[Rfam]
RNA: ZMP/ZTP riboswitch aptamer (pfl RNA motif)
RNA sequence: ACGACCUCGCGUGACUGACGCUGGAGAUGGGCAACCAUCGGGGAGCGCGAGCGGACAUCGCCGCGCGUCUGGGCAUCCUCC
Numbered sequence: 001a002c003g004a005c006c007u008c009g010c011g012u013g014a015c016u017g018a019c020g021c022u023g024g025a026g027a028u029g030g031g032c033a034a035c036c037a038u039c040g041g042g043g044a045g046c047g048c049g050a051g052c053g054g055a056c057a058u059c060g061c062c063g064c065g066c067g068u069c070u071g072g073g074c075a076u077c078c079u080c081c
Stems, first nucleotide, its partner, number of pairs: 006051007015042002017069005027038004060074003